A member of the RNA family "UnaL2 LINE 3' element" from Coregonus sp. 'balchen', 54 nucleotides long. A search with the family's covariance model found it, with a score of 61 bits. NCBI's taxonomy places the organism under Eukaryota, Metazoa, Deuterostomia, Euteleosteomorpha, Coregonus.

[Rfam]
RNA sequence: UAAGUGUUAAUUUGCAAGUCGCUCUGGAUAAGAGCGUCUGCUAAAUGAUGUAAA
Numbered sequence: 001u002a003a004g005u006g007u008u009a010a011u012u013u014g015c016a017a018g019u020c021g022c023u024c025u026g027g028a029u030a031a032g033a034g035c036g037u038c039u040g041c042u043a044a045a046u047g048a049u050g051u052a053a054a
Base pairs, nucleotide, nucleotide: 013043014041015040016039020036021035022034023033024032025031

By type it is a cis-regulatory element. The base pairs follow the family's consensus structure, which is taken from published work. Rfam links the family to the GO term transposition, RNA-mediated.